[Rfam]
RNA sequence: ACCGGCACGGGACGCACAGAUCCCCGGACCGCACGACGGUCGCCUUGGCGGUGCAAGCCGCCGAGUCCGGGAGGAGCGAGUGGCGAGACCGACCCGACCGAC
Numbered sequence: 001a002c003c004g005g006c007a008c009g010g011g012a013c014g015c016a017c018a019g020a021u022c023c024c025c026g027g028a029c030c031g032c033a034c035g036a037c038g039g040u041c042g043c044c045u046u047g048g049c050g051g052u053g054c055a056a057g058c059c060g061c062c063g064a065g066u067c068c069g070g071g072a073g074g075a076g077c078g079a080g081u082g083g084c085g086a087g088a089c090c091g092a093c094c095c096g097a098c099c100g101a102c
Stems, first nucleotide, its partner, number of pairs: 003100003008096004013078003023071007038090002040086005
The family of this 102-nucleotide sequence is "c-di-GMP-II-GAG riboswitch aptamer". Rfam's curators put it in the seed alignment. On this family, see Weinberg et al., Proc Natl Acad Sci U S A 2017: "Bioinformatic analysis of riboswitch structures uncovers variant classes with altered ligand specificity".